Record summary: The family of this 114-nucleotide sequence from Agromyces tardus is "SAM (S-adenosyl methionine) riboswitch aptamer". Pairs were carried over by alignment from the consensus structure, which is taken from published work. The match comes from Rfam's covariance-model search (76 bits).
RNA sequence: GUUCACGAGUGGCAGCUGUCGGUACCUGGCCGGCUGCCCGGCAACCCCCUCCGUCGAGCGGGUGCCCCAGGGGAAGAACCGGCCCGCGGCAUCCGUCUCGGGCAAGUCGACGGA
Numbered sequence: 001g002u003u004c005a006c007g008a009g010u011g012g013c014a015g016c017u018g019u020c021g022g023u024a025c026c027u028g029g030c031c032g033g034c035u036g037c038c039c040g041g042c043a044a045c046c047c048c049c050u051c052c053g054u055c056g057a058g059c060g061g062g063u064g065c066c067c068c069a070g071g072g073g074a075a076g077a078a079c080c081g082g083c084c085c086g087c088g089g090c091a092u093c094c095g096u097c098u099c100g101g102g103c104a105a106g107u108c109g110a111c112g113g114a
Base pairs, nucleotide, nucleotide: 001079002078003077004076009039011038012037013036014035015034016033021031022030040066041065042064045062046061047060050056082103083102084101085100086099088097089096090095